[Rfam]
Rfam assigns this 146-nucleotide RNA from Pelodictyon luteolum to the family "Group II catalytic intron D1-D4-7". For this family Rfam cites "The ins and outs of group II introns" (Bonen and Vogel, Trends Genet, 2001). Group II introns are found in rRNA, tRNA and mRNA of organelles in fungi, plants and protists, and also in mRNA in bacteria.

RNA sequence: CCAGCAGUGCCGUCUGUUGCCCUCACCGAGACAUGCAAGCAGGGUAACCAACUUGUGUGAAGCUCUCGGAUAAACGUACCCGCAGAAAAACUGUAGGCCGACCCGUGAGGGAACGCUGAAUCUGCCAGUAGCAGGCGGAGAGGGGC
Numbered sequence: 001c002c003a004g005c006a007g008u009g010c011c012g013u014c015u016g017u018u019g020c021c022c023u024c025a026c027c028g029a030g031a032c033a034u035g036c037a038a039g040c041a042g043g044g045u046a047a048c049c050a051a052c053u054u055g056u057g058u059g060a061a062g063c064u065c066u067c068g069g070a071u072a073a074a075c076g077u078a079c080c081c082g083c084a085g086a087a088a089a090a091c092u093g094u095a096g097g098c099c100g101a102c103c104c105g106u107g108a109g110g111g112a113a114c115g116c117u118g119a120a121u122c123u124g125c126c127a128g129u130a131g132c133a134g135g136c137g138g139a140g141a142g143g144g145g146c
Stems, first nucleotide, its partner, number of pairs: 002019006027068005032059008042049002082094004096117003103110002121139006
The sequence is in the family's curated seed alignment.